[Rfam]
The family of this 97-nucleotide RNA sequence is "SAM-I/IV (S-adenosyl methionine) riboswitch aptamer". The family is grouped with related families in Rfam's "SAM clan". Its family is annotated with S-adenosylmethionine metabolic process and regulation of gene expression in the Gene Ontology.
RNA sequence: AAAUAACAUUUCGAGAGGGAGCAAUCCCUGCCAACCUGCAUUAACCUGCGAAGGUGGUAACUUUAAUGUGGCUUAUUAAGCAAAAAAAGGUUUCUCC
Numbered sequence: 001a002a003a004u005a006a007c008a009u010u011u012c013g014a015g016a017g018g019g020a021g022c023a024a025u026c027c028c029u030g031c032c033a034a035c036c037u038g039c040a041u042u043a044a045c046c047u048g049c050g051a052a053g054g055u056g057g058u059a060a061c062u063u064u065a066a067u068g069u070g071g072c073u074u075a076u077u078a079a080g081c082a083a084a085a086a087a088a089g090g091u092u093u094c095u096c097c
Stems, first nucleotide, its partner, number of pairs: 006069005015029001017028004030058003035054003038049003043092004071081004